[Rfam]
RNA sequence: AAAAUAUGGAGCCUAGAAGCCAUCAUAAAAACGAGGCGCAACUGAAAAGCCAAAUGAGUAAGAAAAAA
Numbered sequence: 001a002a003a004a005u006a007u008g009g010a011g012c013c014u015a016g017a018a019g020c021c022a023u024c025a026u027a028a029a030a031a032c033g034a035g036g037c038g039c040a041a042c043u044g045a046a047a048a049g050c051c052a053a054a055u056g057a058g059u060a061a062g063a064a065a066a067a068a
Stems, first nucleotide, its partner, number of pairs: 006023004035051003042062002